[Rfam]
RNA sequence: AAAAGUUAAGAAACUGUUUCUUAAAUUUUAACUAAAAAAGCUAAGAACCGGUUUUUAAAGUUUUUAUUUAAAAACCGGUUCUUAGCUUUUUUUAGUUAAAAAUUAAGAAACAGUUUCUUAACUUCC
Numbered sequence: 001a002a003a004a005g006u007u008a009a010g011a012a013a014c015u016g017u018u019u020c021u022u023a024a025a026u027u028u029u030a031a032c033u034a035a036a037a038a039a040g041c042u043a044a045g046a047a048c049c050g051g052u053u054u055u056u057a058a059a060g061u062u063u064u065u066a067u068u069u070a071a072a073a074a075c076c077g078g079u080u081c082u083u084a085g086c087u088u089u090u091u092u093u094a095g096u097u098a099a100a101a102a103u104u105a106a107g108a109a110a111c112a113g114u115u116u117c118u119u120a121a122c123u124u125c126c
Base pairs, nucleotide, nucleotide: 003124004123005122006121007120008119009118010117011116012115013114014113015112016111017110018109019108020107021106022105023104024103026101027100028099029098030097031096032095033094034093035092036091037090038089039088041085042084043083044082045081046080047079